[Rfam]
Nucleotides: 084
Stems, first nucleotide, its partner, number of pairs: 012037002017032006041077003045074003048069003055063003
Number, partner (000 for none) and nucleotide at each position: 001000c002000u003000g004000a005000g006000u007000c008000a009000a010000a011000g012037c013036c014000a015000a016000a017032c018031u019030u020029g021028g022027a023000g024000u025000g026000a027022u028021c029020c030019a031018a032017g033000g034000u035000c036013g037012g038000a039000a040000a041077g042076u043075u044000a045074c046073a047072g048069g049068u050067c051000u052000u053000u054000a055063g056062g057061g058000c059000a060000a061057c062056c063055u064000u065000a066000a067050g068049a069048u070000g071000g072047c073046u074045g075043g076042a077041c078000c079000g080000c081000c082000u083000u084000a
A member of the RNA family "c-di-GMP-I riboswitch aptamer" from Agarivorans albus, 84 nucleotides long.
The family's consensus secondary structure is taken from published work.
Rfam's curators write: GEMM was predicted in a large-scale screen for bacterial structured RNA regulatory elements. Genes associated with GEMM are involved in a diverse array of functions, including chemotaxis regulation, signal transduction, secretion and chitin.
The match comes from Rfam's covariance-model search (56 bits).